[Rfam]
RNA sequence: AUUACAUAUUAGCAAACCUAGAGAAAUCUAGCGACGCAAAGCUAAAGGGGCUAAGGUAAAAUUAGACUAUGCCAGCCAGUUGCCAAA
Numbered sequence: 001a002u003u004a005c006a007u008a009u010u011a012g013c014a015a016a017c018c019u020a021g022a023g024a025a026a027u028c029u030a031g032c033g034a035c036g037c038a039a040a041g042c043u044a045a046a047g048g049g050g051c052u053a054a055g056g057u058a059a060a061a062u063u064a065g066a067c068u069a070u071g072c073c074a075g076c077c078a079g080u081u082g083c084c085a086a087a
Base pairs, nucleotide, nucleotide: 012037013036018031019030020029021028022027040081041080042079043078047077048076049073050072051071056067057066
Dot-bracket structure: ...........((....(((((....)))))....))..((((...(((((....((........))...)))..))))))......